About this RNA: The family of this 84-nucleotide sequence from Sphaerobacter thermophilus is "c-di-GMP-II-GAG riboswitch aptamer". The organism belongs to Sphaerobacter thermophilus, within Bacteria. Its Rfam clan is "c-di-GMP_II riboswitch clan". The literature on the family includes a 2017 paper in Proc Natl Acad Sci U S A by Weinberg et al., "Bioinformatic analysis of riboswitch structures uncovers variant classes with altered ligand specificity".
RNA sequence: CUGACCUGCGGACGUGAUGACCCCUGUGGUGAGCAUGGACGCCGUGCCACCGGGCGAGCGAGUGGCGUACCCGGCCUCGGUCAG
Numbered sequence: 001c002u003g004a005c006c007u008g009c010g011g012a013c014g015u016g017a018u019g020a021c022c023c024c025u026g027u028g029g030u031g032a033g034c035a036u037g038g039a040c041g042c043c044g045u046g047c048c049a050c051c052g053g054g055c056g057a058g059c060g061a062g063u064g065g066c067g068u069a070c071c072c073g074g075c076c077u078c079g080g081u082c083a084g
Stems, first nucleotide, its partner, number of pairs: 001084006008078001010076002013060003022054003026050004037072002039068005